[Rfam]
RNA sequence: AUUUAACAUCAAGAGUAGGGCUGACGUCCUCACCAACCUGCCAACCUGGGCAAGGUGGUUGCUAUAAAGCGAUGUGGUCGAUUCCGACAACGAAUCAGGUAGAC
Dot-bracket structure: .....(((((....(.(((((....))))))(((..((((((.[[[[[))).))).)))...........))))).((((....)))).......]]]]]....